Rfam assigns this 206-nucleotide RNA from Ehrlichia sennetsu to the family "permuted transfer-messenger RNA". Bacterial tmRNA, also known as 10Sa RNA or SsrA, is named for its dual tRNA and mRNA-like properties. Its role is to liberate the mRNA from a stalled ribosome. Rfam links the family to the GO term RNA catabolic process. The family's consensus secondary structure is taken from published work. The sequence is in the family's curated seed alignment. It is annotated as a non-coding RNA gene. The source organism's lineage runs through Bacteria, Pseudomonadati, Pseudomonadota, Alphaproteobacteria and Ehrlichia sennetsu.

[Rfam]
RNA sequence: GACAAUAAAUGGUUUUUCGUAAUAGGUAUCUUGGACCCGAAGGCGGAGUUCGGCACCUCCACCGUUUUGCGGGGGUGAUUUAGUUUCGACAGGUAUUAAAGGCUAAACUUUUGUUCGGUUGAGUGAUCCCGUGAUUCACAACACUUUUUAUAAGUGCAAACGACAAUUUUGAAGCUGGUUCUGCUGAAUAUGCAGUAGCUGCCUAG
Dot-bracket structure: (((((.........(..(........(((.(((...(((((.......)))))(((((((..........)))))))............))))))......)..).....)))))(((..........)))...........................................................................
Numbered sequence: 001g002a003c004a005a006u007a008a009a010u011g012g013u014u015u016u017u018c019g020u021a022a023u024a025g026g027u028a029u030c031u032u033g034g035a036c037c038c039g040a041a042g043g044c045g046g047a048g049u050u051c052g053g054c055a056c057c058u059c060c061a062c063c064g065u066u067u068u069g070c071g072g073g074g075g076u077g078a079u080u081u082a083g084u085u086u087c088g089a090c091a092g093g094u095a096u097u098a099a100a101g102g103c104u105a106a107a108c109u110u111u112u113g114u115u116c117g118g119u120u121g122a123g124u125g126a127u128c129c130c131g132u133g134a135u136u137c138a139c140a141a142c143a144c145u146u147u148u149u150a151u152a153a154g155u156g157c158a159a160a161c162g163a164c165a166a167u168u169u170u171g172a173a174g175c176u177g178g179u180u181c182u183g184c185u186g187a188a189u190a191u192g193c194a195g196u197a198g199c200u201g202c203c204u205a206g
Stems, first nucleotide, its partner, number of pairs: 001115005015105001018102001027095003031092003037053005054077007116131003